[Rfam]
RNA: c-di-AMP riboswitch aptamer (ydaO/yuaA leader)
Organism: Aneurinibacillus danicus
RNA sequence: AAUGUUUACUUGCCGAAUUCGCAUCAUGCGAAGCGGGGGACGAUUUACUCUGGGGUGGAUCCGUUUAUACGGAAAGAGACCUUAUCCUCUUAACCCGUCAACUAACCUCGUAGGCACGAAGGGAGUAAAA
Numbered sequence: 001a002a003u004g005u006u007u008a009c010u011u012g013c014c015g016a017a018u019u020c021g022c023a024u025c026a027u028g029c030g031a032a033g034c035g036g037g038g039g040a041c042g043a044u045u046u047a048c049u050c051u052g053g054g055g056u057g058g059a060u061c062c063g064u065u066u067a068u069a070c071g072g073a074a075a076g077a078g079a080c081c082u083u084a085u086c087c088u089c090u091u092a093a094c095c096c097g098u099c100a101a102c103u104a105a106c107c108u109c110g111u112a113g114g115c116a117c118g119a120a121g122g123g124a125g126u127a128a129a130a
Stems, first nucleotide, its partner, number of pairs: 011116004018032005033111006053096003061072004075090004